Small nucleolar RNA Z43: an 81-nucleotide RNA sequence from Jatropha curcas. The literature on the family includes a 2003 paper in Nucleic Acids Res by Chen et al., "The high diversity of snoRNAs in plants: identification and comparative study of 120 snoRNA genes from Oryza sativa".

[Rfam]
RNA sequence: GGACAAUGAUGAGAGUUUUGUUCGCUCGUCGUGCGUAAUGGCAAAUUUGCCUUGCCGACCCUUCUUUUUUCUUCUGAGUCC
Dot-bracket structure: ((((......................................((.......))........................))))
Lineage of the source: Eukaryota > Viridiplantae > Tracheophyta > Gunneridae > Jatropha. It scores 46 bits against the family's covariance model. By type it is a C/D-box small nucleolar RNA.